[Rfam]
RNA sequence: AAAAAGGGCUUCUAUCUUGAGUGGCACACAUAGGGCAACUCAAUUGCUCCUCAUGCAAAAUCAACAUCAAGAGAUUGCAGAAGUAUAAUUUCUUGGUACCCGGGCAGCUGGUGAUCGUUGGUCCCAGGGCCCAU
Numbered sequence: 001a002a003a004a005a006g007g008g009c010u011u012c013u014a015u016c017u018u019g020a021g022u023g024g025c026a027c028a029c030a031u032a033g034g035g036c037a038a039c040u041c042a043a044u045u046g047c048u049c050c051u052c053a054u055g056c057a058a059a060a061u062c063a064a065c066a067u068c069a070a071g072a073g074a075u076u077g078c079a080g081a082a083g084u085a086u087a088a089u090u091u092c093u094u095g096g097u098a099c100c101c102g103g104g105c106a107g108c109u110g111g112u113g114a115u116c117g118u119u120g121g122u123c124c125c126a127g128g129g130c131c132c133a134u
Base pairs, nucleotide, nucleotide: 008084009083010082011081012080013026015024016023027055028054033049034048035047036046037045038044059076060075061074062073102132103131104130105129108127109126110125111124113123114122115121116120
Rfam assigns this 134-nucleotide sequence from Otolemur garnettii to the family "U11 spliceosomal RNA".
A reference for the family is Montzka and Steitz (1988), "Additional low-abundance human small nuclear ribonucleoproteins: U11, U12, etc", Proc Natl Acad Sci U S A.
It is annotated as a spliceosomal small nuclear RNA.
The organism belongs to Otolemur, within Eukaryota.